[Rfam]
RNA: Group II catalytic intron D1-D4-1
Organism: Porphyromonas asaccharolytica
RNA sequence: CGGCAGUCCUAUAGGAUAGUAACAACGAAUGUCGAGGAGUCAGCAGAGGUCGAAGUAGCCGUUCUCGCGCAGAACAAGGCGAAGGAC
Dot-bracket structure: ((....(.(((.....))).)....))............((....)).(((......((((((.........)))..)))....)))
Numbered sequence: 001c002g003g004c005a006g007u008c009c010u011a012u013a014g015g016a017u018a019g020u021a022a023c024a025a026c027g028a029a030u031g032u033c034g035a036g037g038a039g040u041c042a043g044c045a046g047a048g049g050u051c052g053a054a055g056u057a058g059c060c061g062u063u064c065u066c067g068c069g070c071a072g073a074a075c076a077a078g079g080c081g082a083a084g085g086a087c
Stems, first nucleotide, its partner, number of pairs: 001027002007021001009019003040047002049087003058080003061075003